RNA: c-di-GMP-I-GGC riboswitch aptamer
RNA sequence: AAAUUAAAAGCUAAACUCAUUGUGAAGUGAGGACAGAAAGCCAUGGGUCUUAUAAAGAUUGCCAGGCUGCAAACA
Numbered sequence: 001a002a003a004u005u006a007a008a009a010g011c012u013a014a015a016c017u018c019a020u021u022g023u024g025a026a027g028u029g030a031g032g033a034c035a036g037a038a039a040g041c042c043a044u045g046g047g048u049c050u051u052a053u054a055a056a057g058a059u060u061g062c063c064a065g066g067c068u069g070c071a072a073a074c075a
Stems, first nucleotide, its partner, number of pairs: 004071001011036002016031006034061001039068004044064003047059003
Dot-bracket structure: ...(......((...((((((....))))))..[))..((((.((((((.......))).])))))))..)....